The family of this 113-nucleotide sequence from Thermoactinomyces mirandus is "TPP riboswitch aptamer (THI element)".
Taxonomically the source falls in Thermoactinomyces (Bacteria, Bacillati, Bacillota, Bacilli).
It scores 65 bits against the family's covariance model.
RNA sequence: AUAUGUGCCAGGGGGAGCCGGAUAACGGCCGGCUGAGAAAGUGUACCGAUACACUGACCCUCAUCACCUGAUCCGGGUCAUGCCGGCGUAGGGAUCUGUUUGAAAGCUUUCUG
Numbered sequence: 001a002u003a004u005g006u007g008c009c010a011g012g013g014g015g016a017g018c019c020g021g022a023u024a025a026c027g028g029c030c031g032g033c034u035g036a037g038a039a040a041g042u043g044u045a046c047c048g049a050u051a052c053a054c055u056g057a058c059c060c061u062c063a064u065c066a067c068c069u070g071a072u073c074c075g076g077g078u079c080a081u082g083c084c085g086g087c088g089u090a091g092g093g094a095u096c097u098g099u100u101u102g103a104a105a106g107c108u109u110u111c112u113g
Stems, first nucleotide, its partner, number of pairs: 007100001009098002011061004017033005040055005067092004073086004